Molybdenum/Tungsten riboswitch aptamer (Moco RNA motif): a 131-nucleotide RNA sequence from Sporobacter termitidis. It scores 67 bits against the family's covariance model. Pairs were carried over by alignment from the consensus structure, which is taken from published work.
RNA sequence: ACAAUAUAGAUUUUCCGAGCCUGCGCAGCCUAAGGGAAACUAUGGACGCAGGUCUGAGAUUAAAUUCUCACGGGGUACCGCUGGAAACGGCGAUGCCUUCCCUAUCGAAAAGGAGAAAGGCCAUACGUCUA
Dot-bracket structure: ...(......((((((..(((((((...((...((....))..)).))))))).(((((......)))))..(((((.(((((....))))).)))))((......))...))))))......).......